[Rfam]
RNA sequence: UCACUCUGGUUCUCUUCAUAACACACAAGUCUUUCACCUUUUACUAAAGACUUCCUUGGAGGGGAACAACGAUGCGUUGAAACUAUGUUUGGUGGGCUUUGCUGUUUGGCCG
Numbered sequence: 001u002c003a004c005u006c007u008g009g010u011u012c013u014c015u016u017c018a019u020a021a022c023a024c025a026c027a028a029g030u031c032u033u034u035c036a037c038c039u040u041u042u043a044c045u046a047a048a049g050a051c052u053u054c055c056u057u058g059g060a061g062g063g064g065a066a067c068a069a070c071g072a073u074g075c076g077u078u079g080a081a082a083c084u085a086u087g088u089u090u091g092g093u094g095g096g097c098u099u100u101g102c103u104g105u106u107u108g109g110c111c112g
Stems, first nucleotide, its partner, number of pairs: 003077002006074001008067001010065009027053008095111004

Background
The record is a 112-nucleotide sequence from Etheostoma spectabile, which matches "U5 spliceosomal RNA" in Rfam. U5 RNA is a component of both types of known spliceosome. The precise function of this molecule is unknown, though it is known that the 5' loop is required for splice site selection and p220 binding, and that both the 3' stem-loop and the Sm site are important for Sm protein binding and cap methylation. Rfam links the family to the GO terms spliceosomal tri-snRNP complex assembly and U5 snRNP. Taxonomically the source falls in Oligocephalus (Eukaryota, Osteoglossocephalai, Acanthomorphata, Percomorphaceae). The family's consensus secondary structure is taken from published work.